[Rfam]
RNA sequence: CCAGAGGGUCGGGCGGCCGCGUCGCAUGCCGUGCAUGUGUCGAGGAAAGUCCGGGCUCCGCGGAACGACGGUGCCGGGUAACGCCCGGCGGGGGCGACCCCAGGGACAGUGCCACAGAGAGCAGACCGCCUGCCUUCGCGGCAGGUAAGGGUGAAAGGGUGCGGCAAGAGCGCACCGCGCGGCCGGUAACGGCAGCGGCACGGCAAACCCCACCGGGAGCAAGACCGAAUAGGGGCGGCAUGGGGCGCGGCGACGCGCACCGGGGUGUGUUCCCACCCGCUGCCCGGGUUGGUUGCUGGAGGCGGCGCGCAAGCGUCGUCCGAGAGGAAUGGUCGCCCAGUCCCCGAAAGGGGAUGGACAGAACCCGGCUUACAGACCCUCUGGCAUC
Numbered sequence: 001c002c003a004g005a006g007g008g009u010c011g012g013g014c015g016g017c018c019g020c021g022u023c024g025c026a027u028g029c030c031g032u033g034c035a036u037g038u039g040u041c042g043a044g045g046a047a048a049g050u051c052c053g054g055g056c057u058c059c060g061c062g063g064a065a066c067g068a069c070g071g072u073g074c075c076g077g078g079u080a081a082c083g084c085c086c087g088g089c090g091g092g093g094g095c096g097a098c099c100c101c102a103g104g105g106a107c108a109g110u111g112c113c114a115c116a117g118a119g120a121g122c123a124g125a126c127c128g129c130c131u132g133c134c135u136u137c138g139c140g141g142c143a144g145g146u147a148a149g150g151g152u153g154a155a156a157g158g159g160u161g162c163g164g165c166a167a168g169a170g171c172g173c174a175c176c177g178c179g180c181g182g183c184c185g186g187u188a189a190c191g192g193c194a195g196c197g198g199c200a201c202g203g204c205a206a207a208c209c210c211c212a213c214c215g216g217g218a219g220c221a222a223g224a225c226c227g228a229a230u231a232g233g234g235g236c237g238g239c240a241u242g243g244g245g246c247g248c249g250g251c252g253a254c255g256c257g258c259a260c261c262g263g264g265g266u267g268u269g270u271u272c273c274c275a276c277c278c279g280c281u282g283c284c285c286g287g288g289u290u291g292g293u294u295g296c297u298g299g300a301g302g303c304g305g306c307g308c309g310c311a312a313g314c315g316u317c318g319u320c321c322g323a324g325a326g327g328a329a330u331g332g333u334c335g336c337c338c339a340g341u342c343c344c345c346g347a348a349a350g351g352g353g354a355u356g357g358a359c360a361g362a363a364c365c366c367g368g369c370u371u372a373c374a375g376a377c378c379c380u381c382u383g384g385c386a387u388c
Stems, first nucleotide, its partner, number of pairs: 001384010011373001012337007020042002023039006047371003051368005056219004065271001069215005074088005089103001090101004104210002109208002111204003126150002128146007158176006177199001178197003182193004223294004233285006263278005301320008
This 388-nucleotide RNA from Sphingomonas sp. FARSPH belongs to the Rfam family "Bacterial RNase P class A". Pairs were carried over by alignment from the consensus structure, which is taken from published work. It is annotated as a ribozyme.